The family of this 167-nucleotide sequence from Niallia circulans is "glmS glucosamine-6-phosphate activated ribozyme aptamer". The base pairs follow the family's consensus structure, which is taken from published work. This entry contains a glucosamine-6-phosphate activated ribozyme that is found in the mRNA for GlmS. GlmS is an enzyme that uses fructose-6-phosphate and glutamine to generate glucosamine-6-phosphate. On this family, see Winkler et al., Nature 2004: "Control of gene expression by a natural metabolite-responsive ribozyme". NCBI's taxonomy places the organism under Bacteria, Bacillati, Bacillota, Caryophanales, Niallia.

RNA sequence: UAGGAAUUUGAAGCGCCUGGACUAGUAAUGGACGACACGAAACUAGUUGACGAGGAGGAGGUUUAUCGAUUUUUCGGCGGAUGCCUCCCGGUUGUAUUAGCCAAUCGUAAGUCAUACUUUAAAACAUUAAGGUAACUUAAUGCACAAAGAGUAGGGCAUGCUAAUCA
Numbered sequence: 001u002a003g004g005a006a007u008u009u010g011a012a013g014c015g016c017c018u019g020g021a022c023u024a025g026u027a028a029u030g031g032a033c034g035a036c037a038c039g040a041a042a043c044u045a046g047u048u049g050a051c052g053a054g055g056a057g058g059a060g061g062u063u064u065a066u067c068g069a070u071u072u073u074u075c076g077g078c079g080g081a082u083g084c085c086u087c088c089c090g091g092u093u094g095u096a097u098u099a100g101c102c103a104a105u106c107g108u109a110a111g112u113c114a115u116a117c118u119u120u121a122a123a124a125c126a127u128u129a130a131g132g133u134a135a136c137u138u139a140a141u142g143c144a145c146a147a148a149g150a151g152u153a154g155g156g157c158a159u160g161c162u163a164a165u166c167a
Stems, first nucleotide, its partner, number of pairs: 020048007029039001057088005066077004089107006111157003115153003125142007